[Rfam]
The family of this 79-nucleotide RNA from Myotis davidii is "mir-9198 microRNA precursor family".
RNA sequence: GCCUCCGCUCACACCCACUGCUGGCACCUAGCACUGGUCCCGAUCGCUUGGUGCCAUCAGUGGGUGUGAGUGGUGGCUG
Numbered sequence: 001g002c003c004u005c006c007g008c009u010c011a012c013a014c015c016c017a018c019u020g021c022u023g024g025c026a027c028c029u030a031g032c033a034c035u036g037g038u039c040c041c042g043a044u045c046g047c048u049u050g051g052u053g054c055c056a057u058c059a060g061u062g063g064g065u066g067u068g069a070g071u072g073g074u075g076g077c078u079g
Stems, first nucleotide, its partner, number of pairs: 005073016022056007
About this RNA
The family's consensus secondary structure was predicted with RNAalifold. Taxonomically the source falls in Myotis (Eukaryota, Euteleostomi, Amniota, Laurasiatheria). Gene Ontology terms of the family: miRNA-mediated post-transcriptional gene silencing and RISC complex.